[Rfam]
Small nucleolar RNA Z102/R77: an 85-nucleotide RNA from Acer saccharum.
For this family Rfam cites "The high diversity of snoRNAs in plants: identification and comparative study of 120 snoRNA genes from Oryza sativa" (Chen et al., Nucleic Acids Res, 2003).
The organism belongs to Acer, within Eukaryota.
Pairs were carried over by alignment from the consensus structure, which was predicted with PFOLD.
RNA sequence: GAAUGAAGUGAUGACUGGAACGAUUCCCUAUUGGUUUGAUUUGCCGCAAUGAUGGCCACUUGUUAUUAGCUCUAUCUGAUCAUUC
Numbered sequence: 001g002a003a004u005g006a007a008g009u010g011a012u013g014a015c016u017g018g019a020a021c022g023a024u025u026c027c028c029u030a031u032u033g034g035u036u037u038g039a040u041u042u043g044c045c046g047c048a049a050u051g052a053u054g055g056c057c058a059c060u061u062g063u064u065a066u067u068a069g070c071u072c073u074a075u076c077u078g079a080u081c082a083u084u085c
Base pairs, nucleotide, nucleotide: 002084003083004082005081038059043056044055045054